[Rfam]
RNA sequence: GCGCAAACCUAGGGGAUCCCCGUCAGGGGGCUGAGAGGCUGGCAACGCUUGAAUGAGCGGCCCGGCGACCCUUCGAACCUGAUCCAGCUCGCACUGGCGUAGGGAUGGUGAACCUUUGAAAU
Numbered sequence: 001g002c003g004c005a006a007a008c009c010u011a012g013g014g015g016a017u018c019c020c021c022g023u024c025a026g027g028g029g030g031c032u033g034a035g036a037g038g039c040u041g042g043c044a045a046c047g048c049u050u051g052a053a054u055g056a057g058c059g060g061c062c063c064g065g066c067g068a069c070c071c072u073u074c075g076a077a078c079c080u081g082a083u084c085c086a087g088c089u090c091g092c093a094c095u096g097g098c099g100u101a102g103g104g105a106u107g108g109u110g111a112a113c114c115u116u117u118g119a120a121a122u
Stems, first nucleotide, its partner, number of pairs: 007109003011072004018030004038066005078103004084097004
A member of the RNA family "TPP riboswitch aptamer (THI element)" from Methylocella tundrae, 122 nucleotides long. Its family is annotated with thiamine pyrophosphate binding in the Gene Ontology. The organism belongs to Methylocella, within Bacteria. About the family: Vitamin B(1) in its active form thiamin pyrophosphate (TPP) is an essential coenzyme that is synthesised by coupling of pyrimidine and thiazole moieties in bacteria. For this family Rfam cites "Comparative genomics of thiamin biosynthesis in procaryotes. New genes and regulatory mechanisms" (Rodionov et al., J Biol Chem, 2002).